This 181-nucleotide RNA sequence from Spathaspora sp. JA1 belongs to the Rfam family "Small nucleolar RNA snR32". Its family is annotated with nucleolus and RNA processing in the Gene Ontology. A reference for the family is Balakin et al. (1993), "SnR31, snR32, and snR33: three novel, non-essential snRNAs from Saccharomyces cerevisiae", Nucleic Acids Res. Taxonomically the source falls in Spathaspora (Eukaryota, Dikarya, saccharomyceta, Saccharomycotina).
RNA sequence: AACAUCAAUCGCAGAUUCAUCCUUCACCAAAAGAAUAAUUUAAUUAGUUUAAUAUUAAGUUAGUUUGAAGGUUCACAAAUGAAUGUAAGCGUAGACUAACCAAUUAAGUUUGGAGCACGUUUCUGGGCGCCCGAUGUUGACAAACUCCGUGGAACAUUGGGAAUCAGUUGUGACUAUAAAU
Numbered sequence: 001a002a003c004a005u006c007a008a009u010c011g012c013a014g015a016u017u018c019a020u021c022c023u024u025c026a027c028c029a030a031a032a033g034a035a036u037a038a039u040u041u042a043a044u045u046a047g048u049u050u051a052a053u054a055u056u057a058a059g060u061u062a063g064u065u066u067g068a069a070g071g072u073u074c075a076c077a078a079a080u081g082a083a084u085g086u087a088a089g090c091g092u093a094g095a096c097u098a099a100c101c102a103a104u105u106a107a108g109u110u111u112g113g114a115g116c117a118c119g120u121u122u123c124u125g126g127g128c129g130c131c132c133g134a135u136g137u138u139g140a141c142a143a144a145c146u147c148c149g150u151g152g153a154a155c156a157u158u159g160g161g162a163a164u165c166a167g168u169u170g171u172g173a174c175u176a177u178a179a180a181u
Base pairs, nucleotide, nucleotide: 010091011090012089017082018081019080020079027047029045030044033041034040035039048069049068050067051066052065055063056062115174117171118170119169130161131160134157135156136155137154138153141152